RNA sequence: GACAACGAUUAACUCCUAGCCUUCACACCUACGUUUCAGGUCGGAACCGGAAAUAGGGUGAGCUGGCCGUGACACUCACGAGUGCCACCAGGGUGCAGGAUAGAAAUGUCCGCAUCUCCCGUAUUUGGAAAGGUGUUAUGACUGAACAAC
Numbered sequence: 001g002a003c004a005a006c007g008a009u010u011a012a013c014u015c016c017u018a019g020c021c022u023u024c025a026c027a028c029c030u031a032c033g034u035u036u037c038a039g040g041u042c043g044g045a046a047c048c049g050g051a052a053a054u055a056g057g058g059u060g061a062g063c064u065g066g067c068c069g070u071g072a073c074a075c076u077c078a079c080g081a082g083u084g085c086c087a088c089c090a091g092g093g094u095g096c097a098g099g100a101u102a103g104a105a106a107u108g109u110c111c112g113c114a115u116c117u118c119c120c121g122u123a124u125u126u127g128g129a130a131a132g133g134u135g136u137u138a139u140g141a142c143u144g145a146a147c148a149a150c
Base pairs, nucleotide, nucleotide: 003144004143011137012136013135015133016132019067020066021065024062026060027059028058029057033054034053035052036051069088070087071086073084074083075082091117092116093115094114095113096112098111099110100109101108102107118128119127
The family of this 150-nucleotide sequence from Morganella morganii is "Molybdenum/Tungsten riboswitch aptamer (Moco RNA motif)". Lineage of the source: Bacteria > Pseudomonadati > Enterobacterales > Morganella > Morganella morganii subsp. morganii.